[Rfam]
RNA sequence: UGGCUGUCAUGGUCAAAAAGUUAGAAGGUCACUUUUGGGCUCGGGGCGUCGCUUCACACCCCACUUGUUCAUGUGUGCCUUACUCGGAGCUCCGGGUCGUCUUCGUACUCGUGUGUGUAGACCACGAUCGCUACGAGGCGUUAAGCAAUGGAGAUGACCCUUGAGGGAAGCAAUUCUGCAGAGACAUUUCCACCCGGAGUUGGCGGCGUGAGAUUACACCAUGGCAAGAUAUGCGAAGUUACGAGCUUGCCUUGUGACCAACUUUUUU
Numbered sequence: 001u002g003g004c005u006g007u008c009a010u011g012g013u014c015a016a017a018a019a020g021u022u023a024g025a026a027g028g029u030c031a032c033u034u035u036u037g038g039g040c041u042c043g044g045g046g047c048g049u050c051g052c053u054u055c056a057c058a059c060c061c062c063a064c065u066u067g068u069u070c071a072u073g074u075g076u077g078c079c080u081u082a083c084u085c086g087g088a089g090c091u092c093c094g095g096g097u098c099g100u101c102u103u104c105g106u107a108c109u110c111g112u113g114u115g116u117g118u119a120g121a122c123c124a125c126g127a128u129c130g131c132u133a134c135g136a137g138g139c140g141u142u143a144a145g146c147a148a149u150g151g152a153g154a155u156g157a158c159c160c161u162u163g164a165g166g167g168a169a170g171c172a173a174u175u176c177u178g179c180a181g182a183g184a185c186a187u188u189u190c191c192a193c194c195c196g197g198a199g200u201u202g203g204c205g206g207c208g209u210g211a212g213a214u215u216a217c218a219c220c221a222u223g224g225c226a227a228g229a230u231a232u233g234c235g236a237a238g239u240u241a242c243g244a245g246c247u248u249g250c251c252u253u254g255u256g257a258c259c260a261a262c263u264u265u266u267u268u
Stems, first nucleotide, its partner, number of pairs: 001015004019266002027259006038247006045240003049236003066226002069224005075219003079212005084206003088201009098140001100138003104135004109127005115122002141145001149192007160183003167176003
Fungal signal recognition particle RNA: a 268-nucleotide sequence from Exophiala sideris. Pairs were carried over by alignment from the consensus structure, which is taken from published work. Its family is annotated with signal recognition particle, endoplasmic reticulum targeting, SRP-dependent cotranslational protein targeting to membrane, signal sequence recognition and signal recognition particle, plasma membrane targeting in the Gene Ontology. Rfam 15.1 lists 748 matches to the family in 741 species. The literature on the family includes a 2002 paper in Curr Opin Struct Biol by Wild et al., "Towards the structure of the mammalian signal recognition particle". The family is grouped with related families in Rfam's "SRP clan". The family's RNA type in Rfam is non-coding RNA gene.